[Rfam]
RNA sequence: UAAAAACCAAUGACGGAGAAAAGUAGCCGAUGCAGGCAAGCCUUCAGAGAGUCCCGGAUGGUGUGAUCGGGGCGGCGGACGGUCGGUGAAUGGACUUCGGAGGGCGGAUCAAAAGGCGAAAGCCGAGUAGAGACCGACGGGUAUCCCACCCGUUAUCCAUCGGGGCGCGUAUGAUGGUGCGCGUAAGCGAGCGGGCGUUUGAUAACGUCAAUUUGGGUGGUAUCGCAGAAGUUCAACGACUUUUGUCCCAUGU
Numbered sequence: 001u002a003a004a005a006a007c008c009a010a011u012g013a014c015g016g017a018g019a020a021a022a023g024u025a026g027c028c029g030a031u032g033c034a035g036g037c038a039a040g041c042c043u044u045c046a047g048a049g050a051g052u053c054c055c056g057g058a059u060g061g062u063g064u065g066a067u068c069g070g071g072g073c074g075g076c077g078g079a080c081g082g083u084c085g086g087u088g089a090a091u092g093g094a095c096u097u098c099g100g101a102g103g104g105c106g107g108a109u110c111a112a113a114a115g116g117c118g119a120a121a122g123c124c125g126a127g128u129a130g131a132g133a134c135c136g137a138c139g140g141g142u143a144u145c146c147c148a149c150c151c152g153u154u155a156u157c158c159a160u161c162g163g164g165g166c167g168c169g170u171a172u173g174a175u176g177g178u179g180c181g182c183g184u185a186a187g188c189g190a191g192c193g194g195g196c197g198u199u200u201g202a203u204a205a206c207g208u209c210a211a212u213u214u215g216g217g218u219g220g221u222a223u224c225g226c227a228g229a230a231g232u233u234c235a236a237c238g239a240c241u242u243u244u245g246u247c248c249c250a251u252g253u
Stems, first nucleotide, its partner, number of pairs: 007103002015098004026087006040076003051073006105136003109132001138152003194209006214250004225246009
About this RNA
The record is a 253-nucleotide sequence from Firmicutes bacterium CAG:129, which matches "T-box leader" in Rfam. The source organism's lineage runs through Bacteria, Bacillati and Bacillota. By type it is a cis-regulatory leader.